[Rfam]
RNA sequence: AUUUCCGUCCCCUUGCGGGGAAAUGGCUGGGAAAAUG
Numbered sequence: 001a002u003u004u005c006c007g008u009c010c011c012c013u014u015g016c017g018g019g020g021a022a023a024u025g026g027c028u029g030g031g032a033a034a035a036u037g
Base pairs, nucleotide, nucleotide: 005026006025008021009020010019011018012017
The record is a 37-nucleotide RNA from Thermocoleostomius sinensis, which matches "CRISPR RNA direct repeat element" in Rfam. Lineage of the source: Bacteria > Bacillati > Cyanobacteriota > Oculatellales > Thermocoleostomius sinensis. The family's consensus secondary structure was predicted with WAR. The match comes from Rfam's covariance-model search (41 bits). Gene Ontology term of the family: defense response.